[Rfam]
RNA sequence: GGUCGCCUUCGGGGUCGGGUGUAAUUCCCAACCGGCGGUGAUGAAGCAUAGAGCUUCUUAGUCCGUGACCCGGUUAACAGCAGUUAAACGGUGGAUCUGGUGAAAUUCCAGGGCCGACAGUAAAAGUCUGGAUGGGAGAAGGAAAUU
Dot-bracket structure: ..(..(((((......(((.......))).[[((((((......................[[))))...((..................))....(((((.......)))))]])).(((.....]]))).......)))))..)..

FMN riboswitch aptamer (RFN element): a 147-nucleotide sequence from Mesobacillus foraminis. A search with the family's covariance model found it, with a score of 109 bits. Its family is annotated with FMN binding in the Gene Ontology. Lineage of the source: Bacteria > Bacillati > Bacillota > Bacillaceae > Mesobacillus. A reference for the family is Vitreschak et al. (2002), "Regulation of riboflavin biosynthesis and transport genes in bacteria by transcriptional and translational attenuation", Nucleic Acids Res.